[Rfam]
RNA sequence: UGGUUACGCAAAGAGUUUUAAUUUUUUAAAGAGACCAACGCACAUUAACGGUCUCAGGCGACAGGCACAACGGAGAGAGAAACUAUGUUUGAA
Dot-bracket structure: ((.((.((....(((.((((((.....................))))..)).)))...))..)).))......(((.(.......).)))...
The record is a 93-nucleotide RNA from Kluyvera genomosp. 3, which matches "Plasmid-encoded Shigella sRNA A" in Rfam.
Taxonomically the source falls in Kluyvera (Bacteria, Gammaproteobacteria, Enterobacterales, Enterobacteriaceae).
It scores 78 bits against the family's covariance model.